[Rfam]
RNA sequence: UUUUCUUUGAUUUUUAUCAGGUGCGUGGUUGCCGGGUUUGAUAAAAAUUAACGAUUAAGUCUUUACUAGCGUAUCUUCUCGCCGUGUCAAAACCGAGGGGAUGCGCUUUUUU
Numbered sequence: 001u002u003u004u005c006u007u008u009g010a011u012u013u014u015u016a017u018c019a020g021g022u023g024c025g026u027g028g029u030u031g032c033c034g035g036g037u038u039u040g041a042u043a044a045a046a047a048u049u050a051a052c053g054a055u056u057a058a059g060u061c062u063u064u065a066c067u068a069g070c071g072u073a074u075c076u077u078c079u080c081g082c083c084g085u086g087u088c089a090a091a092a093c094c095g096a097g098g099g100g101a102u103g104c105g106c107u108u109u110u111u112u
Stems, first nucleotide, its partner, number of pairs: 004054002007051016068107014084093002